[Rfam]
RNA sequence: UGCCGUUGCCCUUACGGGCGUUUCCUCCCUAGACUAGACCGCACUGUCUCACCGCAGUGCGGUUCUUUUUGGCCUUG
Numbered sequence: 001u002g003c004c005g006u007u008g009c010c011c012u013u014a015c016g017g018g019c020g021u022u023u024c025c026u027c028c029c030u031a032g033a034c035u036a037g038a039c040c041g042c043a044c045u046g047u048c049u050c051a052c053c054g055c056a057g058u059g060c061g062g063u064u065c066u067u068u069u070u071g072g073c074c075u076u077g
Stems, first nucleotide, its partner, number of pairs: 008019004039062009
A member of the RNA family "Makes More Granules Regulator RNA (mmgR)" from Aurantimonas aggregata, 77 nucleotides long.
The match comes from Rfam's covariance-model search (61 bits).
The base pairs follow the family's consensus structure.
The organism belongs to Aurantimonas, within Bacteria.